Mammalian CPEB3 ribozyme: a 74-nucleotide RNA from Alligator sinensis. A search with the family's covariance model found it, with a score of 56 bits. Lineage of the source: Eukaryota > Vertebrata > Gnathostomata > Amniota > Alligator.
RNA sequence: CUGCGAUUUCAAGGCCACAGCAGAAGUGCUCACAACAUGGCCUGUCAGAUUCCAAGAAAUCUGUGAAUUCUGCU
Numbered sequence: 001c002u003g004c005g006a007u008u009u010c011a012a013g014g015c016c017a018c019a020g021c022a023g024a025a026g027u028g029c030u031c032a033c034a035a036c037a038u039g040g041c042c043u044g045u046c047a048g049a050u051u052c053c054a055a056g057a058a059a060u061c062u063g064u065g066a067a068u069u070c071u072g073c074u
Base pairs, nucleotide, nucleotide: 013042014041015040016039019074020073021072022071023070024069025068026038027037028036046063047062048061049060050059051058